Record summary
Rfam assigns this 95-nucleotide sequence from Tianweitania populi to the family "Alphaproteobacterial ar15". Clan: suhB sRNA clan. Pairs were carried over by alignment from the consensus structure. Rfam classes the family as a small RNA.

RNA sequence: ACCGAACGCCCGCUGGUUCCUCUUUCGGCGGACGUGUUCCCCUCAGAAGGUCUCGCACCUUCCACUUGACCGGGCCGCAUGCGCGCCCGGUUUUU
Numbered sequence: 001a002c003c004g005a006a007c008g009c010c011c012g013c014u015g016g017u018u019c020c021u022c023u024u025u026c027g028g029c030g031g032a033c034g035u036g037u038u039c040c041c042c043u044c045a046g047a048a049g050g051u052c053u054c055g056c057a058c059c060u061u062c063c064a065c066u067u068g069a070c071c072g073g074g075c076c077g078c079a080u081g082c083g084c085g086c087c088c089g090g091u092u093u094u095u
Stems, first nucleotide, its partner, number of pairs: 001035001003034002007030003015026001046062006070090006076083002

A reference for the family is del Val et al. (2012), "A survey of sRNA families in alpha-proteobacteria", RNA Biol.